[Rfam]
RNA: mir-7 microRNA precursor family
RNA sequence: UUUCUAGGUCAGCAUGGAAGACUAGUGAUUUUGUUGUUUUUUUAAAACUUUAUUGACAAACAGCAAAUCUAGUCUCCACUCUGCCCUAGGAG
Numbered sequence: 001u002u003u004c005u006a007g008g009u010c011a012g013c014a015u016g017g018a019a020g021a022c023u024a025g026u027g028a029u030u031u032u033g034u035u036g037u038u039u040u041u042u043u044a045a046a047a048c049u050u051u052a053u054u055g056a057c058a059a060a061c062a063g064c065a066a067a068u069c070u071a072g073u074c075u076c077c078a079c080u081c082u083g084c085c086c087u088a089g090g091a092g
Stems, first nucleotide, its partner, number of pairs: 002091007010083003015078003019075005025070001027069005033064006